[Rfam]
Nucleotides: 064
Stems, first nucleotide, its partner, number of pairs: 007060003010056004018044009
Number, partner (000 for none) and nucleotide at each position: 001000g002000g003000u004000a005000u006000g007060u008059a009058u010056u011055u012054u013053a014000a015000u016000c017000c018044c019043a020042c021041g022040a023039u024038a025037a026036g027000c028000c029000c030000c031000g032000g033000a034000a035000g036026u037025u038024u039023a040022u041021u042020g043019u044018g045000a046000u047000u048000g049000a050000a051000a052000a053013u054012a055011a056010a057000u058009a059008u060007a061000a062000a063000a064000a
Record summary:
The record is a 64-nucleotide RNA from Peribacillus muralis, which matches "Ribosomal protein L13 leader" in Rfam. This family is a putative r-protein leader autoregulatory structure found in B. subtilis and other low-GC Gram-positive bacteria. Pairs were carried over by alignment from the consensus structure, which was predicted with CMfinder. On this family, see Zengel and Lindahl, Prog Nucleic Acid Res Mol Biol 1994: "Diverse mechanisms for regulating ribosomal protein synthesis in Escherichia coli". By type it is a cis-regulatory leader.